RNA sequence: AACUCCAGGGGAAUAAGGGCAUCGCCUCCUUUUGGUGAAGGACACUCCCUUCUGAUGGAGAAUGGGAACUCCCUUCCUCCUGCAGCGGCCUGCCUGCAGCACUCCCGUUAGGUCACCCUGGACGCUGUAGGCUGCUGUGGCUGCCUCGCCCCAGAAAGAAAGUGCCCCAGAGC
Numbered sequence: 001a002a003c004u005c006c007a008g009g010g011g012a013a014u015a016a017g018g019g020c021a022u023c024g025c026c027u028c029c030u031u032u033u034g035g036u037g038a039a040g041g042a043c044a045c046u047c048c049c050u051u052c053u054g055a056u057g058g059a060g061a062a063u064g065g066g067a068a069c070u071c072c073c074u075u076c077c078u079c080c081u082g083c084a085g086c087g088g089c090c091u092g093c094c095u096g097c098a099g100c101a102c103u104c105c106c107g108u109u110a111g112g113u114c115a116c117c118c119u120g121g122a123c124g125c126u127g128u129a130g131g132c133u134g135c136u137g138u139g140g141c142u143g144c145c146u147c148g149c150c151c152c153a154g155a156a157a158g159a160a161a162g163u164g165c166c167c168c169a170g171a172g173c
Base pairs, nucleotide, nucleotide: 003172004171005170008168009167010166011165014159016050017049018048019047025041026040027039029037051155052154053153058079060076061075062074064073065072066071085147086143087142088141089140094137096135097134098133099132100131105130

Description
The family of this 173-nucleotide RNA from Lynx canadensis is "FGF-1 internal ribosome entry site (IRES)". The source organism's lineage runs through Eukaryota, Opisthokonta, Teleostomi, Sarcopterygii and Lynx. Its family is annotated with ribosome binding in the Gene Ontology. The family's consensus secondary structure is taken from published work. Rfam describes the family as follows. This family represents the FGF-1 internal ribosome entry site (IRES). For this family Rfam cites "Internal Ribosome Entry Site Structural Motifs Conserved among Mammalian Fibroblast Growth Factor 1 Alternatively Spliced mRNAs" (Martineau et al., Mol Cell Biol, 2004).